[Rfam]
RNA sequence: AUUGACAAGUAGAGGCACCCGCUUCUCGCCUGUAUGACACAUUUAAAUGUAGUUGCCAGGUUCAAACGAUUCUGAAUUAAACAGGAUAUGUGUGGGUGCAGUGUGCACUCACACUUUUUUAUUUAU
Numbered sequence: 001a002u003u004g005a006c007a008a009g010u011a012g013a014g015g016c017a018c019c020c021g022c023u024u025c026u027c028g029c030c031u032g033u034a035u036g037a038c039a040c041a042u043u044u045a046a047a048u049g050u051a052g053u054u055g056c057c058a059g060g061u062u063c064a065a066a067c068g069a070u071u072c073u074g075a076a077u078u079a080a081a082c083a084g085g086a087u088a089u090g091u092g093u094g095g096g097u098g099c100a101g102u103g104u105g106c107a108c109u110c111a112c113a114c115u116u117u118u119u120u121a122u123u124u125a126u
Base pairs, nucleotide, nucleotide: 011026012025013024014023015022016021028061029060030059036054037053038052039050040049091113092112093111094110095109096108097107098106099105100104
Rfam assigns this 126-nucleotide RNA from Pelagirhabdus alkalitolerans to the family "Ribosomal protein L20 leader".
NCBI's taxonomy places the organism under Bacteria, Bacillota, Bacilli, Bacillaceae, Pelagirhabdus.
Gene Ontology term of the family: regulation of gene expression.
The base pairs follow the family's consensus structure, which was predicted with CMfinder.
By type it is a cis-regulatory leader.
This family is a putative r-protein leader autoregulatory structure found in B. subtilis and other low-GC Gram-positive bacteria.